[Rfam]
RNA sequence: CGCCCACAAUGGGCCUCAACGGUUUCAACACGGAUGCGGUCUCGUGUGCCAAGUGUGAGCGGACGCGAAGCGCUGCGAGCCAGUCGGUCACGUACCGAAGCCCUUCCGAGGGGCAUCCCUGUUGGAGUCGUUUCCGGCCCCCGCCGGACUCGGUUUCAUCUUUGGUCUCCUCGCGCUAACCCCGUAGCGUGUGGUUUUUAGCGGGCUAAUAAGCCCGCUUUUUUUCG
Numbered sequence: 001c002g003c004c005c006a007c008a009a010u011g012g013g014c015c016u017c018a019a020c021g022g023u024u025u026c027a028a029c030a031c032g033g034a035u036g037c038g039g040u041c042u043c044g045u046g047u048g049c050c051a052a053g054u055g056u057g058a059g060c061g062g063a064c065g066c067g068a069a070g071c072g073c074u075g076c077g078a079g080c081c082a083g084u085c086g087g088u089c090a091c092g093u094a095c096c097g098a099a100g101c102c103c104u105u106c107c108g109a110g111g112g113g114c115a116u117c118c119c120u121g122u123u124g125g126a127g128u129c130g131u132u133u134c135c136g137g138c139c140c141c142c143g144c145c146g147g148a149c150u151c152g153g154u155u156u157c158a159u160c161u162u163u164g165g166u167c168u169c170c171u172c173g174c175g176c177u178a179a180c181c182c183c184g185u186a187g188c189g190u191g192u193g194g195u196u197u198u199u200a201g202c203g204g205g206c207u208a209a210u211a212a213g214c215c216c217g218c219u220u221u222u223u224u225u226c227g
Stems, first nucleotide, its partner, number of pairs: 004165003018132013032118006039081001042078001046073004053066004084098005101112004135147001137145001169194002172191007200219008
Rfam assigns this 227-nucleotide RNA from Burkholderia ambifaria to the family "Burkholderia sRNA Bp1_Cand871_SIPHT". The base pairs follow the family's consensus structure, which was predicted with CMfinder. The literature on the family includes a 2017 paper in Sci Rep by Sass et al., "Identification of small RNAs abundant in Burkholderia cenocepacia biofilms reveal putative regulators with a potential role in carbon and iron metabolism". Lineage of the source: Bacteria > Pseudomonadati > Betaproteobacteria > Burkholderia cepacia complex > Burkholderia ambifaria.